[Rfam]
Record summary:
c-di-AMP riboswitch aptamer (ydaO/yuaA leader): a 171-nucleotide RNA from Roseimicrobium sp. ORNL1. Taxonomically the source falls in Roseimicrobium (Bacteria, Verrucomicrobiia, Verrucomicrobiales, Verrucomicrobiaceae). The match comes from Rfam's covariance-model search (50 bits).

RNA sequence: UUGCGGUGUCAGCCGAAGUCAUUACUGCUUCCUCAGUAGUGGCACGGGGGAACCGAACUCCUGGGAACGCAAGAACUCAGGACGGGGCGUACGGGGUGGGUAACCACUCGCAGGGGUCACUUCCAAGACCUAGCCCGCCAGCUAACCUCGCAGGCAACAUUGGGAGGGACG
Numbered sequence: 001u002u003g004c005g006g007u008g009u010c011a012g013c014c015g016a017a018g019u020c021a022u023u024a025c026u027g028c029u030u031c032c033u034c035a036g037u038a039g040u041g042g043c044a045c046g047g048g049g050g051a052a053c054c055g056a057a058c059u060c061c062u063g064g065g066a067a068c069g070c071a072a073g074a075a076c077u078c079a080g081g082a083c084g085g086g087g088c089g090u091a092c093g094g095g096g097u098g099g100g101u102a103a104c105c106a107c108u109c110g111c112a113g114g115g116g117u118c119a120c121u122u123c124c125a126a127g128a129c130c131u132a133g134c135c136c137g138c139c140a141g142c143u144a145a146c147c148u149c150g151c152a153g154g155c156a157a158c159a160u161u162g163g164g165a166g167g168g169a170c171g
Stems, first nucleotide, its partner, number of pairs: 012155003018043010045150005054084002085136003094109003114130002117127001